[Rfam]
RNA sequence: GUCGCCGCGAGGCGGGGUGGGAAGCAACUGGAGGCGAACCGGCGGUCCGUAGGAUGACGAACCUGAUUCGGCGGGAUGCCGUGGCGAGCUUGCGAGGGUAAGGGCGAAGCCCGGAACAGCCGAAGGCGCUAAAGGCGAAUGGCAAAGCGACCUUCGGGCGGCUCACGUGGUUGAGGACGGAACGUCGGGAAGGCGAAGCGG
Number, nucleotide and partner (000 for none) at each position: 001g000002u015003c014004g013005c012006c011007g000008c000009g000010a000011g006012g005013c004014g003015g002016g000017g000018u000019g000020g000021g000022a000023a000024g000025c000026a000027a000028c201029u200030g199031g000032a000033g000034g194035c193036g000037a000038a000039c188040c187041g186042g185043c184044g000045g183046u181047c180048c179049g178050u177051a000052g000053g000054a000055u000056g000057a000058c000059g000060a000061a000062c176063c175064u174065g000066a172067u000068u000069c000070g000071g168072c167073g166074g000075g164076a163077u000078g162079c161080c160081g159082u000083g000084g148085c147086g000087a000088g143089c142090u141091u000092g000093c000094g000095a000096g000097g000098g000099u000100a000101a000102g000103g000104g000105c000106g000107a000108a000109g000110c000111c000112c000113g000114g000115a000116a000117c000118a000119g000120c000121c000122g000123a000124a000125g000126g000127c000128g000129c000130u000131a000132a000133a000134g000135g000136c000137g000138a000139a000140u000141g090142g089143c088144a000145a000146a000147g085148c084149g000150a000151c000152c000153u000154u000155c000156g000157g000158g000159c081160g080161g079162c078163u076164c075165a000166c073167g072168u071169g000170g000171u000172u066173g000174a064175g063176g062177a050178c049179g048180g047181a046182a000183c045184g043185u042186c041187g040188g039189g000190a000191a000192g000193g035194c034195g000196a000197a000198g000199c030200g029201g028

Record summary
Group II catalytic intron D1-D4-3: a 201-nucleotide sequence from Roseiarcus fermentans. Lineage of the source: Bacteria > Pseudomonadati > Hyphomicrobiales > Roseiarcaceae > Roseiarcus. The pairing is the family consensus, mapped onto this sequence.